[Rfam]
RNA: Fumarate/nitrate reductase regulator sRNA
RNA sequence: GCAGGUGAAUGCAACGUCAAGCGAUGGGCGUUGCGCUCCAUAUUGUCUUACUUCCUAAUUUUUUGAAUUAUUGCAUAGCACAUUUAAUUCGUACCAUGCCGGCUCUGAAGCCGGCAUUU
Numbered sequence: 001g002c003a004g005g006u007g008a009a010u011g012c013a014a015c016g017u018c019a020a021g022c023g024a025u026g027g028g029c030g031u032u033g034c035g036c037u038c039c040a041u042a043u044u045g046u047c048u049u050a051c052u053u054c055c056u057a058a059u060u061u062u063u064u065g066a067a068u069u070a071u072u073g074c075a076u077a078g079c080a081c082a083u084u085u086a087a088u089u090c091g092u093a094c095c096a097u098g099c100c101g102g103c104u105c106u107g108a109a110g111c112c113g114g115c116a117u118u119u
Stems, first nucleotide, its partner, number of pairs: 001046004007038002010035009065090006072080003098115007